[Rfam]
RNA sequence: ACCUUUAUGGCAAUAUUGUAACCAGUGAGGUUAAUCCGAGGCACAAUUAUUGCUAAUUGAAAUCUUUGUGUGCCUCCUCCGCGAGAGGUCCAGAGGGCAGCGAGAUGAGAAAGGGCCUUUUCUGUGGUGGCUUCCCCACAUGUGG
Numbered sequence: 001a002c003c004u005u006u007a008u009g010g011c012a013a014u015a016u017u018g019u020a021a022c023c024a025g026u027g028a029g030g031u032u033a034a035u036c037c038g039a040g041g042c043a044c045a046a047u048u049a050u051u052g053c054u055a056a057u058u059g060a061a062a063u064c065u066u067u068g069u070g071u072g073c074c075u076c077c078u079c080c081g082c083g084a085g086a087g088g089u090c091c092a093g094a095g096g097g098c099a100g101c102g103a104g105a106u107g108a109g110a111a112a113g114g115g116c117c118u119u120u121u122c123u124g125u126g127g128u129g130g131c132u133u134c135c136c137c138a139c140a141u142g143u144g145g
Base pairs, nucleotide, nucleotide: 015047016046017045018044019043022041023040029037030036080126081125082124083122084121085120086119087118088117090115091114134145135144137142

Shown here is a 145-nucleotide RNA sequence from Podarcis lilfordi, a member of the family "U4 spliceosomal RNA". NCBI's taxonomy places the organism under Eukaryota, Metazoa, Deuterostomia, Tetrapoda, Podarcis. Clan: U4 clan.